This 85-nucleotide RNA from Sporomusa acidovorans belongs to the Rfam family "c-di-GMP-I riboswitch aptamer".
RNA sequence: UAAUAUUUUUGGCAAACUUAUCGAAAGAUAAGGACGCAAAGCCAUGGGUCUAAAGAUUUUUUUCUAUGAUUGCCAGGUUGCUGAU
Numbered sequence: 001u002a003a004u005a006u007u008u009u010u011g012g013c014a015a016a017c018u019u020a021u022c023g024a025a026a027g028a029u030a031a032g033g034a035c036g037c038a039a040a041g042c043c044a045u046g047g048g049u050c051u052a053a054a055g056a057u058u059u060u061u062u063u064c065u066a067u068g069a070u071u072g073c074c075a076g077g078u079u080g081c082u083g084a085u
Stems, first nucleotide, its partner, number of pairs: 012037002017032006040079004045075003048070003055064002
Clan: c-di-GMP_I riboswitch clan. Its family is annotated with cyclic-di-GMP binding in the Gene Ontology. It scores 79 bits against the family's covariance model.